RNA sequence: AGUCACUGAUGAUUUUAAAUAUAAGAGUAGUGGACAGAAGUGGUUUCUGAGACGUUUUGCACUGAGACU
Numbered sequence: 001a002g003u004c005a006c007u008g009a010u011g012a013u014u015u016u017a018a019a020u021a022u023a024a025g026a027g028u029a030g031u032g033g034a035c036a037g038a039a040g041u042g043g044u045u046u047c048u049g050a051g052a053c054g055u056u057u058u059g060c061a062c063u064g065a066g067a068c069u
Stems, first nucleotide, its partner, number of pairs: 001069004

This 69-nucleotide RNA from Echeneis naucrates belongs to the Rfam family "Small nucleolar RNA SNORD75". Its family is annotated with nucleolus and RNA processing in the Gene Ontology. It scores 59 bits against the family's covariance model. The organism belongs to Echeneis, within Eukaryota.